[Rfam]
RNA sequence: CGAGAUGCCCUUCUUGAACUGGCGAUACGGACCUUAGACAAGUCGUAUCUUCCCAGUUCAGAAGGGCAUUUCGGUGUUCCCACGCCUGUCCGCGGCGCUCAGCUCAUCGGUGGAUCGAG
Numbered sequence: 001c002g003a004g005a006u007g008c009c010c011u012u013c014u015u016g017a018a019c020u021g022g023c024g025a026u027a028c029g030g031a032c033c034u035u036a037g038a039c040a041a042g043u044c045g046u047a048u049c050u051u052c053c054c055a056g057u058u059c060a061g062a063a064g065g066g067c068a069u070u071u072c073g074g075u076g077u078u079c080c081c082a083c084g085c086c087u088g089u090c091c092g093c094g095g096c097g098c099u100c101a102g103c104u105c106a107u108c109g110g111u112g113g114a115u116c117g118a119g
Stems, first nucleotide, its partner, number of pairs: 001073012015060003019056004024049003028045001031043002100117001102115001104113003